RNA sequence: UAUCGGUUCAAGUCCUGAGAGGAUCCAAUAUUUGGAGAUGCCUUGUAACCGAAUAGCUGACGUCUAUAGGGGGACUAAUAUG
Numbered sequence: 001u002a003u004c005g006g007u008u009c010a011a012g013u014c015c016u017g018a019g020a021g022g023a024u025c026c027a028a029u030a031u032u033u034g035g036a037g038a039u040g041c042c043u044u045g046u047a048a049c050c051g052a053a054u055a056g057c058u059g060a061c062g063u064c065u066a067u068a069g070g071g072g073g074a075c076u077a078a079u080a081u082g
Stems, first nucleotide, its partner, number of pairs: 012075005019044004024036005049070002
The record is an 82-nucleotide RNA from Lactobacillus apis, which matches "SAM-III riboswitch aptamer (SMK box)" in Rfam. NCBI's taxonomy places the organism under Bacteria, Bacillota, Bacilli, Lactobacillales, Lactobacillus. Its family is annotated with methionine adenosyltransferase activity and regulation of translational initiation in the Gene Ontology.